[Rfam]
RNA: Purine riboswitch aptamer
Organism: Viridibacillus arenosi
RNA sequence: AGAAGGAAAACAUCGAAUCCCCAUAUAUGCUAAGGAAUUGGCCUUAGUGUCUCUACCCGACACCGUAAAUGUCGGACUAUGCGGGAAAGCAACUUUUGG
Numbered sequence: 001a002g003a004a005g006g007a008a009a010a011c012a013u014c015g016a017a018u019c020c021c022c023a024u025a026u027a028u029g030c031u032a033a034g035g036a037a038u039u040g041g042c043c044u045u046a047g048u049g050u051c052u053c054u055a056c057c058c059g060a061c062a063c064c065g066u067a068a069a070u071g072u073c074g075g076a077c078u079a080u081g082c083g084g085g086a087a088a089g090c091a092a093c094u095u096u097u098g099g
Stems, first nucleotide, its partner, number of pairs: 018085003022081004029048007057075006